Shown here is a 147-nucleotide RNA sequence from Listeria monocytogenes, a member of the family "Listeria sRNA rli38". Pairs were carried over by alignment from the consensus structure, which was predicted with RNAalifold.

RNA sequence: GUUGAGUGGGAAUAGUAAGCUAACAUAGUAAGUAUGGAGAAUGCAGAUAAAUCAACGUUUUUCAACUAAAUGCUUGGUUAUCAUUAAAUAUGAUAUGCUUCCCUACCAUUUUCCUUACCAAAGUGAAAUCUUGCUAAGAUGAAGCUA
Numbered sequence: 001g002u003u004g005a006g007u008g009g010g011a012a013u014a015g016u017a018a019g020c021u022a023a024c025a026u027a028g029u030a031a032g033u034a035u036g037g038a039g040a041a042u043g044c045a046g047a048u049a050a051a052u053c054a055a056c057g058u059u060u061u062u063c064a065a066c067u068a069a070a071u072g073c074u075u076g077g078u079u080a081u082c083a084u085u086a087a088a089u090a091u092g093a094u095a096u097g098c099u100u101c102c103c104u105a106c107c108a109u110u111u112u113c114c115u116u117a118c119c120a121a122a123g124u125g126a127a128a129u130c131u132u133g134c135u136a137a138g139a140u141g142a143a144g145c146u147a
Stems, first nucleotide, its partner, number of pairs: 008103005050079006057073002060070003081093004110143003114138004119133003
For this family Rfam cites "The Listeria transcriptional landscape from saprophytism to virulence" (Toledo-Arana et al., Nature, 2009).